The family of this 426-nucleotide RNA from Chlamydia pneumoniae is "transfer-messenger RNA". Rfam links the family to the GO term RNA catabolic process. About the family: Bacterial tmRNA, also known as 10Sa RNA or SsrA, is named for its dual tRNA and mRNA-like properties. NCBI's taxonomy places the organism under Bacteria, Chlamydiota, Chlamydiaceae, Chlamydia, Chlamydia pneumoniae. Pairs were carried over by alignment from the consensus structure, which is taken from published work. By type it is a non-coding RNA gene. The sequence is in the family's curated seed alignment.
RNA sequence: GGGGGUGUAUAGGUUUCGACUUGAAAAUGAAGUGUUAAUUGCAUGCGGAGGGCGUUGGCUGGCCUCCUAAAAAGCCAACAAAACAAUAAAUGCCGAACCUAAGGCUGAAUGCGAAAUUAUUAGCUUGUUUGACUCAGUAGAGGAAAGACUAGCUGCUUAAUUAGCAAAAGUUGUUAGCUAGAUAAUCUCUAGGUAACCCGGUAUCUGCGAGCUCCACCAGAGGCUUGCAAAAUACCGUCAUUUAUCUGGUUGGAACUUACUUUCUCUAAUUCUCAAGGAAGUUCGUUCGAGAUUUUUGAGAGUCAUUGGCUGCUAUAGAGGCUUCUAGCUAAGGGAGUCCAAUGUAAACAAUUCUAGAAGAUAAGCAUGUAGAGGUUAGCAGGGAGUUUGUCAAGGACGAGAGUUCGAGUCUCUCCACCUCCAUUA
Numbered sequence: 001g002g003g004g005g006u007g008u009a010u011a012g013g014u015u016u017c018g019a020c021u022u023g024a025a026a027a028u029g030a031a032g033u034g035u036u037a038a039u040u041g042c043a044u045g046c047g048g049a050g051g052g053c054g055u056u057g058g059c060u061g062g063c064c065u066c067c068u069a070a071a072a073a074g075c076c077a078a079c080a081a082a083a084c085a086a087u088a089a090a091u092g093c094c095g096a097a098c099c100u101a102a103g104g105c106u107g108a109a110u111g112c113g114a115a116a117u118u119a120u121u122a123g124c125u126u127g128u129u130u131g132a133c134u135c136a137g138u139a140g141a142g143g144a145a146a147g148a149c150u151a152g153c154u155g156c157u158u159a160a161u162u163a164g165c166a167a168a169a170g171u172u173g174u175u176a177g178c179u180a181g182a183u184a185a186u187c188u189c190u191a192g193g194u195a196a197c198c199c200g201g202u203a204u205c206u207g208c209g210a211g212c213u214c215c216a217c218c219a220g221a222g223g224c225u226u227g228c229a230a231a232a233u234a235c236c237g238u239c240a241u242u243u244a245u246c247u248g249g250u251u252g253g254a255a256c257u258u259a260c261u262u263u264c265u266c267u268a269a270u271u272c273u274c275a276a277g278g279a280a281g282u283u284c285g286u287u288c289g290a291g292a293u294u295u296u297u298g299a300g301a302g303u304c305a306u307u308g309g310c311u312g313c314u315a316u317a318g319a320g321g322c323u324u325c326u327a328g329c330u331a332a333g334g335g336a337g338u339c340c341a342a343u344g345u346a347a348a349c350a351a352u353u354c355u356a357g358a359a360g361a362u363a364a365g366c367a368u369g370u371a372g373a374g375g376u377u378a379g380c381a382g383g384g385a386g387u388u389u390g391u392c393a394a395g396g397a398c399g400a401g402a403g404u405u406c407g408a409g410u411c412u413c414u415c416c417a418c419c420u421c422c423a424u425u426a
Stems, first nucleotide, its partner, number of pairs: 001422007020395005026389001033381008042369005047067005054079007150176004155171004199237005204231001206229002209226004216250006251290001253288004269303006304344005309338002316331003322360002326356003399415005